[Rfam]
RNA sequence: AUCUCCCGGUCGUGACGGUGGCGGCUUCGCGCCCCACCAUCAUACCUCCCUGUUGGACUUCGGCCGAGCUUAGUGCUCGGCCUUUUUU
Numbered sequence: 001a002u003c004u005c006c007c008g009g010u011c012g013u014g015a016c017g018g019u020g021g022c023g024g025c026u027u028c029g030c031g032c033c034c035c036a037c038c039a040u041c042a043u044a045c046c047u048c049c050c051u052g053u054u055g056g057a058c059u060u061c062g063g064c065c066g067a068g069c070u071u072a073g074u075g076c077u078c079g080g081c082c083u084u085u086u087u088u
Stems, first nucleotide, its partner, number of pairs: 008041003012037003062082008

Notes:
The record is an 88-nucleotide RNA sequence from Roseovarius litoreus, which matches "Singlet oxygen resistance RNA X" in Rfam. Rfam classes the family as a small RNA. Lineage of the source: Bacteria > Pseudomonadati > Pseudomonadota > Roseobacteraceae > Roseovarius. The family has 8 seed sequences and 528 matches in Rfam 15.1. Gene Ontology term of the family: response to photooxidative stress. SorX (RSs2461)like SorY is a singlet oxygen induced sRNA that counteracts oxidative stress by targeting mRNA for a transporter in Rhodobacter. It also has an impact on resistance against organic hydroperoxides.